[Rfam]
RNA sequence: CGCCUUUCUGCGGGAGAGCAAGGCACCACGCCUUCGCCGAAGGCGCAAACUCCCAUAAUCGCUCAGGCCCCCCGAACCGCAGGAAUCGU
Numbered sequence: 001c002g003c004c005u006u007u008c009u010g011c012g013g014g015a016g017a018g019c020a021a022g023g024c025a026c027c028a029c030g031c032c033u034u035c036g037c038c039g040a041a042g043g044c045g046c047a048a049a050c051u052c053c054c055a056u057a058a059u060c061g062c063u064c065a066g067g068c069c070c071c072c073c074g075a076a077c078c079g080c081a082g083g084a085a086u087c088g089u
Base pairs, nucleotide, nucleotide: 006084007083008082009081010080011079012078013077020034021033022032023031036068037067038066039064040063043062044061045060049056